[Rfam]
RNA sequence: GUGGGUUAUGGGGACAUGCACCCCAUCACUAUUGGGGGCAAAAUAGUGGGGUCUCUCUGUGCCAUAGCUGGAGUGUUGACCAUUGCCUUGCCUGUUCCUGUGAUAGUCUCCAAC
Numbered sequence: 001g002u003g004g005g006u007u008a009u010g011g012g013g014a015c016a017u018g019c020a021c022c023c024c025a026u027c028a029c030u031a032u033u034g035g036g037g038g039c040a041a042a043a044u045a046g047u048g049g050g051g052u053c054u055c056u057c058u059g060u061g062c063c064a065u066a067g068c069u070g071g072a073g074u075g076u077u078g079a080c081c082a083u084u085g086c087c088u089u090g091c092c093u094g095u096u097c098c099u100g101u102g103a104u105a106g107u108c109u110c111c112a113a114c
Stems, first nucleotide, its partner, number of pairs: 001114002004111002008107002011104001014101003018097001020095002037077004049063002
About this RNA: The record is a 114-nucleotide RNA from Pogona vitticeps, which matches "Potassium channel RNA editing signal" in Rfam. Lineage of the source: Eukaryota > Opisthokonta > Eumetazoa > Bilateria > Pogona. A reference for the family is Bhalla et al. (2004), "Control of human potassium channel inactivation by editing of a small mRNA hairpin", Nat Struct Mol Biol. The base pairs follow the family's consensus structure, which is taken from published work. The family's RNA type in Rfam is cis-regulatory element.